[Rfam]
RNA sequence: AAGUAAGGACGACCUUACUCAUUUGAUUGAUUUCGGGACGACCCAA
Numbered sequence: 001a002a003g004u005a006a007g008g009a010c011g012a013c014c015u016u017a018c019u020c021a022u023u024u025g026a027u028u029g030a031u032u033u034c035g036g037g038a039c040g041a042c043c044c045a046a
Stems, first nucleotide, its partner, number of pairs: 002019007035044003
RNA: Guanidine-II riboswitch aptamer (mini-ykkC)